Description: Rfam assigns this 194-nucleotide sequence to the family "Group II catalytic intron D1-D4-3".
Nucleotides: 194
Stems, first nucleotide, its partner, number of pairs: 001016006051193004057186001061181006067172005083167006094159003098155007105133004111126004
Number, partner (000 for none) and nucleotide at each position: 001016u002015c003014c004013a005012u006011c007000g008000u009000g010000a011006g012005g013004u014003g015002g016001a017000a018000u019000c020000u021000g022000a023000a024000g025000a026000a027000a028000g029000u030000c031000g032000g033000a034000u035000g036000u037000g038000g039000g040000a041000a042000c043000a044000g045000a046000c047000u048000a049000a050000c051193c052192a053191c054190g055000a056000g057186c058000a059000a060000a061181u062180c063179u064178c065177u066176g067172g068171u069170c070169u071168g072000a073000u074000g075000a076000a077000c078000a079000g080000a081000a082000a083167u084166c085165u086164c087163a088162u089000a090000u091000a092000a093000g094159g095158u096157u097000a098155u099154g100153c101152a102151u103150g104149a105133g106132g107131g108130u109000a110000a111126g112125g113124c114123u115000g116000c117000a118000a119000g120000c121000c122000a123114a124113g125112u126111u127000a128000a129000a130108g131107c132106c133105c134000a135000a136000u137000a138000a139000c140000u141000a142000c143000a144000u145000g146000g147000a148000a149104u150103c151102a152101u153100g154099c155098g156000u157096g158095a159094u160000a161000a162088a163087u164086g165085a166084g167083g168071c169070a170069g171068a172067u173000g174000a175000a176066u177065g178064g179063a180062g181061a182000g183000g184000g185000a186057g187000a188000a189000a190054c191053g192052u193051g194000u
A reference for the family is Bonen and Vogel (2001), "The ins and outs of group II introns", Trends Genet. Group II introns are found in rRNA, tRNA and mRNA of organelles in fungi, plants and protists, and also in mRNA in bacteria.